[Rfam]
RNA sequence: AAUAAAACACAGGGGAGCUUGUAUAUACAGGCUGAGAGGAAGUUUUCAACUUCGACCCUUUAACCUGAUGCGGGUAAUGCCGCCGUAGGAAGUCGUUACAAUUAACGU
Numbered sequence: 001a002a003u004a005a006a007a008c009a010c011a012g013g014g015g016a017g018c019u020u021g022u023a024u025a026u027a028c029a030g031g032c033u034g035a036g037a038g039g040a041a042g043u044u045u046u047c048a049a050c051u052u053c054g055a056c057c058c059u060u061u062a063a064c065c066u067g068a069u070g071c072g073g074g075u076a077a078u079g080c081c082g083c084c085g086u087a088g089g090a091a092g093u094c095g096u097u098a099c100a101a102u103u104a105a106c107g108u
Stems, first nucleotide, its partner, number of pairs: 006096001009093002011059004017032005039053005064089004070083004
Background: The record is a 108-nucleotide sequence from Clostridium sp. C105KSO13, which matches "TPP riboswitch aptamer (THI element)" in Rfam. Rfam describes the family as follows. Vitamin B(1) in its active form thiamin pyrophosphate (TPP) is an essential coenzyme that is synthesised by coupling of pyrimidine and thiazole moieties in bacteria. Pairs were carried over by alignment from the consensus structure, which is taken from published work. Lineage of the source: Bacteria > Bacillota > Clostridia > Eubacteriales > Clostridium.